Overview
Guanidine-I riboswitch aptamer: a 105-nucleotide RNA sequence from Mycobacterium sp. ITM-2016-00318. For this family Rfam cites "New RNA motifs suggest an expanded scope for riboswitches in bacterial genetic control" (Barrick et al., Proc Natl Acad Sci U S A, 2004). A search with the family's covariance model found it, with a score of 76 bits.

RNA sequence: GUGAGGCGCGUCUAGGGUUCCGCCGAUUCACGGGUCUGGUCCGAGAGACGCAGGCGGACGGCGACGAGGCCGGCUGUUCCACGGCGGGAUAAAAGCCCGGGAGGC
Numbered sequence: 001g002u003g004a005g006g007c008g009c010g011u012c013u014a015g016g017g018u019u020c021c022g023c024c025g026a027u028u029c030a031c032g033g034g035u036c037u038g039g040u041c042c043g044a045g046a047g048a049c050g051c052a053g054g055c056g057g058a059c060g061g062c063g064a065c066g067a068g069g070c071c072g073g074c075u076g077u078u079c080c081a082c083g084g085c086g087g088g089a090u091a092a093a094a095g096c097c098c099g100g101g102a103g104g105c
Base pairs, nucleotide, nucleotide: 008051009050010049011048012047015042016041020039021038022036023033024032025031053078054077055076056075057074059072060071061070062069080100082103086098087097088096